RNA sequence: UCAUAACCCGAACCGGUGCUAAAGGGUCCUGCCCAACGGCUACUGACAGAUGCUGUCGGGGCAGGGACCCUUUAGCACCAGUUUGUGUUACCAA
Numbered sequence: 001u002c003a004u005a006a007c008c009c010g011a012a013c014c015g016g017u018g019c020u021a022a023a024g025g026g027u028c029c030u031g032c033c034c035a036a037c038g039g040c041u042a043c044u045g046a047c048a049g050a051u052g053c054u055g056u057c058g059g060g061g062c063a064g065g066g067a068c069c070c071u072u073u074a075g076c077a078c079c080a081g082u083u084u085g086u087g088u089u090a091c092c093a094a
Stems, first nucleotide, its partner, number of pairs: 004090004009085005015079013029065002032060003036056002043049002